[Rfam]
RNA sequence: UAAAACGUGAUGAGCAGGAGAAGUAAAUCAGAUUUAUUUUUCAGAGAGCCGGGGGAUGGUGGAACCCGGUAAGUAAACUGAUUGAAAUACACCUGGGAGCAGCAGGUCGAAAUAGAAGUAGACUUUGCCGGAGCGCCACCGUUAUCAUAGGCUAGGGUAUCAGAUUUUAUCUCGUACCUGAGUAAAGCGGCUUGCAAUGCAAGCAGGGUGGUACCGCGGGCUUAUAUCCCGUCCCUGAU
Numbered sequence: 001u002a003a004a005a006c007g008u009g010a011u012g013a014g015c016a017g018g019a020g021a022a023g024u025a026a027a028u029c030a031g032a033u034u035u036a037u038u039u040u041u042c043a044g045a046g047a048g049c050c051g052g053g054g055g056a057u058g059g060u061g062g063a064a065c066c067c068g069g070u071a072a073g074u075a076a077a078c079u080g081a082u083u084g085a086a087a088u089a090c091a092c093c094u095g096g097g098a099g100c101a102g103c104a105g106g107u108c109g110a111a112a113u114a115g116a117a118g119u120a121g122a123c124u125u126u127g128c129c130g131g132a133g134c135g136c137c138a139c140c141g142u143u144a145u146c147a148u149a150g151g152c153u154a155g156g157g158u159a160u161c162a163g164a165u166u167u168u169a170u171c172u173c174g175u176a177c178c179u180g181a182g183u184a185a186a187g188c189g190g191c192u193u194g195c196a197a198u199g200c201a202a203g204c205a206g207g208g209u210g211g212u213a214c215c216g217c218g219g220g221c222u223u224a225u226a227u228c229c230c231g232u233c234c235c236u237g238a239u
Stems, first nucleotide, its partner, number of pairs: 007100002015095004026083006037073003048070006103127002105124004129141003190204006205236004216232005
A member of the RNA family "T-box leader" from Propionispora sp. 2/2-37, 239 nucleotides long. Pairs were carried over by alignment from the consensus structure, which is taken from published work. Rfam describes the family as follows. Uncharged tRNA acts as the effector for transcription antitermination of genes in the T-box leader family. T-boxes are found upstream of many aminoacyl-tRNA synthetase genes and some amino acid biosynthetic genes usually in Gram-positive bacteria. The anticodon of a specific tRNA base pairs to a specifier sequence within the T-box motif, and the NCCA acceptor tail of the tRNA base pairs to a conserved bulge in the T-box antiterminator hairpin. On this family, see Grundy et al., J Bacteriol 1994: "Interaction between the acceptor end of tRNA and the T box stimulates antitermination in the Bacillus subtilis tyrS gene: a new role for the discriminator base". NCBI's taxonomy places the organism under Bacteria, Bacillati, Negativicutes, Sporomusaceae, Propionispora. It scores 139 bits against the family's covariance model.